[Rfam]
Notes:
5' ureB small RNA: a 287-nucleotide RNA from Bifidobacterium primatium. It scores 121 bits against the family's covariance model. A reference for the family is Wen et al. (2013), "Helicobacter pylori 5'ureB-sRNA, a cis-encoded antisense small RNA, negatively regulates ureAB expression by transcription termination", J Bacteriol. The source organism's lineage runs through Bacteria, Bacillati, Actinomycetota, Bifidobacteriaceae and Bifidobacterium.
Nucleotides: 287
Stems, first nucleotide, its partner, number of pairs: 001287003005284001008160001010158001012156002014072006026049003030046002033044002036041001053065002073150002077146002081142001086140003089135003094129002100124002106122002109119001166275004172268003177263002180258001188222005203210001225256003232249002236247002
Number, partner (000 for none) and nucleotide at each position: 001287g002286c003285g004000c005284a006000c007000c008160u009000g010158c011000u012156g013155c014072g015071g016070c017069g018068a019067g020000a021000u022000g023000a024000a025000g026049u027048g028047g029000a030046u031045g032000u033044g034043g035000g036041u037000g038000u039000c040000g041036a042000g043034u044033c045031c046030g047028c048027c049026g050000g051000c052000c053065g054064u055000u056000a057000c058000a059000a060000u061000c062000a063000u064054g065053c066000c067019u068018u069017c070016g071015c072014c073150g074149g075000c076000g077146a078145g079000c080000g081142c082000c083000u084000c085000g086140g087139u088138g089135c090134c091133g092000g093000a094129g095128c096000c097000g098000a099000c100124g101123g102000c103000c104000a105000g106122g107121c108000c109119g110000g111000g112000c113000g114000u115000g116000a117000c118000g119109c120000c121107g122106u123101c124100c125000a126000u127000g128095g129094u130000c131000u132000g133091c134090g135089g136000a137000u138088u139087g140086c141000c142081g143000g144000c145078c146077u147000u148000g149074c150073c151000g152000a153000u154000g155013g156012c157000c158010g159000a160008a161000a162000u163000c164000u165000u166275g167274c168273c169272g170000u171000u172268c173267u174266u175000g176000a177263u178262g179000c180258c181000g182000a183000u184000g185000u186000c187000g188222g189221c190220c191219u192218u193000g194000u195000a196000g197000a198000u199000g200000c201000c202000g203210g204000u205000g206000u207000a208000g209000u210203c211000g212000a213000c214000g215000a216000u217000g218192a219191g220190g221189g222188c223000g224000u225256u226255g227254g228000u229000g230000a231000u232249g233248a234000c235000g236247g237246u238000g239000u240000c241000g242000g243000g244000c245000g246237a247236u248233u249232c250000g251000g252000c253000g254227u255226c256225g257000a258180g259000c260000u261000g262178c263177a264000c265000g266174g267173a268172g269000c270000u271000u272169u273168g274167g275166c276000c277000c278000a279000u280000g281000c282000c283000g284005u285003c286002g287001c